Rfam assigns this 61-nucleotide RNA from Pseudomonas sp. 8AS to the family "Pseudomonas sRNA P36". Rfam 15.1 lists 53 matches to the family in 38 species. The literature on the family includes a 2006 paper in Nucleic Acids Res by Livny et al., "Identification of 17 Pseudomonas aeruginosa sRNAs and prediction of sRNA-encoding genes in 10 diverse pathogens using the bioinformatic tool sRNAPredict2".
[Rfam]
RNA sequence: CAGCUGUUACCGCAACGCCCCAGCCGUAACAGGCGCCGGGUUCAUCGGUAACGAGAACGCG
Numbered sequence: 001c002a003g004c005u006g007u008u009a010c011c012g013c014a015a016c017g018c019c020c021c022a023g024c025c026g027u028a029a030c031a032g033g034c035g036c037c038g039g040g041u042u043c044a045u046c047g048g049u050a051a052c053g054a055g056a057a058c059g060c061g
Stems, first nucleotide, its partner, number of pairs: 004032007012025001037061002040058004045054003